[Rfam]
RNA: Alphaproteobacterial sRNA ar7
Organism: Mesorhizobium ciceri
RNA sequence: CAUCGGCAGUUUUCGCCGAGUCCGGAGCAAGGCCCGUCCCCCGCCUAUCCCGGACACCUGCGGCAGCCUAUCCCCCCUCUCCGGGCUGCCGCAUCGUUUCGAGUAGAAGGCCGCCGUGGUUCCCCCUCCACCACGGCGGUCUUUU
Numbered sequence: 001c002a003u004c005g006g007c008a009g010u011u012u013u014c015g016c017c018g019a020g021u022c023c024g025g026a027g028c029a030a031g032g033c034c035c036g037u038c039c040c041c042c043g044c045c046u047a048u049c050c051c052g053g054a055c056a057c058c059u060g061c062g063g064c065a066g067c068c069u070a071u072c073c074c075c076c077c078u079c080u081c082c083g084g085g086c087u088g089c090c091g092c093a094u095c096g097u098u099u100c101g102a103g104u105a106g107a108a109g110g111c112c113g114c115c116g117u118g119g120u121u122c123c124c125c126c127u128c129c130a131c132c133a134c135g136g137c138g139g140u141c142u143u144u145u
Base pairs, nucleotide, nucleotide: 021054022053023052024051025050027048031045032044033043059093060092061091062090063089064088065087066086067085068084106141111139112138113137114136115135116134117133118132119131120130